[Rfam]
This 90-nucleotide RNA from Medicago truncatula belongs to the Rfam family "MIR2617 microRNA precursor family". NCBI's taxonomy places the organism under Eukaryota, Streptophyta, Magnoliopsida, Trifolieae, Medicago.

RNA sequence: AUGAAGUGUGACAUGCCCGUUUUUUUUGGAUUUACUCUGAUGUUAUUUAUUAUUAAAUUGAUUUUGGGAAACGGGGUGUUACAGAGUUCG
Numbered sequence: 001a002u003g004a005a006g007u008g009u010g011a012c013a014u015g016c017c018c019g020u021u022u023u024u025u026u027u028g029g030a031u032u033u034a035c036u037c038u039g040a041u042g043u044u045a046u047u048u049a050u051u052a053u054u055a056a057a058u059u060g061a062u063u064u065u066g067g068g069a070a071a072c073g074g075g076g077u078g079u080u081a082c083a084g085a086g087u088u089c090g
Stems, first nucleotide, its partner, number of pairs: 002090004007083008016075008